The family of this 121-nucleotide RNA sequence from Staphylococcus haemolyticus is "DUF3800-I RNA".
It is annotated as a small RNA.
The match comes from Rfam's covariance-model search (55 bits).
Actinobacteria, Firmicutes, Fusobacteria, Proteobacteria (1 example), Tenericutes (2 examples).

[Rfam]
RNA sequence: GCAUUUAGCAGUAAGUAGCUGACUGUCCAUAGUAAGAUAGCCGAAGAGAUUCUAAACGUAUUUAUGAAUACGUGGCUCUUACUAGAUAACCGUAUCUUAAUAGGUACGGUUAUUUUUUUAU
Number, nucleotide and partner (000 for none) at each position: 001g000002c000003a000004u000005u000006u000007a000008g026009c025010a024011g023012u021013a020014a000015g000016u000017a000018g000019c000020u013021g012022a000023c011024u010025g009026u008027c000028c000029a000030u084031a083032g082033u081034a080035a079036g000037a000038u000039a077040g076041c075042c074043g052044a051045a050046g000047a000048g000049a000050u045051u044052c043053u000054a000055a000056a073057c072058g071059u070060a069061u068062u000063u000064a000065u000066g000067a000068a061069u060070a059071c058072g057073u056074g042075g041076c040077u039078c000079u035080u034081a033082c032083u031084a030085g114086a113087u112088a111089a110090c109091c108092g107093u106094a105095u104096c103097u102098u000099a000100a000101u000102a097103g096104g095105u094106a093107c092108g091109g090110u089111u088112a087113u086114u085115u000116u000117u000118u000119u000120a000121u000